[Rfam]
RNA sequence: CCUUAUCACUUUUCCAGCCCAGCUUUGUGACUCUGAGUGUUGGACGGAGAACUGAUAAGGGU
Numbered sequence: 001c002c003u004u005a006u007c008a009c010u011u012u013u014c015c016a017g018c019c020c021a022g023c024u025u026u027g028u029g030a031c032u033c034u035g036a037g038u039g040u041u042g043g044a045c046g047g048a049g050a051a052c053u054g055a056u057a058a059g060g061g062u
Base pairs, nucleotide, nucleotide: 001060002059003058004057005056006055007054008053010051011050012049013048014047015046018043019042
RNA: mir-184 microRNA precursor family
Organism: Tupaia belangeri